The family of this 45-nucleotide sequence from Orchesella cincta is "Histone 3' UTR stem-loop". The mRNAs of metazoan histone genes lack a poly-A tail. 3' end processing occurs at a site between a highly conserved stem-loop (modelled by this family) and a purine rich region around 20 nts downstream (the histone downstream element, or HDE). The stem-loop is bound by a 31 kDa stem-loop binding protein (SLBP - also termed the histone hairpin binding protein, or HBP). Together with U7 snRNA binding of the HDE, SLBP binding nucleate s the formation of the processing complex. The histone 3' UTR stem-loop is also involved in nucleocytoplasmic transport of the mRNA, and in stability regulation and translation efficiency in the cytoplasm. The family has 50 seed sequences and 44,596 matches in Rfam 15.1. A search with the family's covariance model found it, with a score of 37 bits. The base pairs follow the family's consensus structure, which is taken from published work.
RNA sequence: CCAACGGUUCUUUUAAGAACCACCAAAACUUACAAAGAGCAAUCA
Numbered sequence: 001c002c003a004a005c006g007g008u009u010c011u012u013u014u015a016a017g018a019a020c021c022a023c024c025a026a027a028a029c030u031u032a033c034a035a036a037g038a039g040c041a042a043u044c045a
Base pairs, nucleotide, nucleotide: 006021007020008019009018010017011016